[Rfam]
RNA sequence: GUGCAUGUAAAACCAAGAGCUGUGGCUCAGUGAAAUAGCCACAGGAUCUCCAACUACAUGCAAGAACAAGGAGGAGAGACUUUGGCAACUAAGCCCUGUGUGCCUAUGGCUGUCACUCGCCUCUCCUAUAAGC
Numbered sequence: 001g002u003g004c005a006u007g008u009a010a011a012a013c014c015a016a017g018a019g020c021u022g023u024g025g026c027u028c029a030g031u032g033a034a035a036u037a038g039c040c041a042c043a044g045g046a047u048c049u050c051c052a053a054c055u056a057c058a059u060g061c062a063a064g065a066a067c068a069a070g071g072a073g074g075a076g077a078g079a080c081u082u083u084g085g086c087a088a089c090u091a092a093g094c095c096c097u098g099u100g101u102g103c104c105u106a107u108g109g110c111u112g113u114c115a116c117u118c119g120c121c122u123c124u125c126c127u128a129u130a131a132g133c
Stems, first nucleotide, its partner, number of pairs: 013044001019039005073126006088113002091105001093103001
RNA: Small nucleolar RNA SNORA44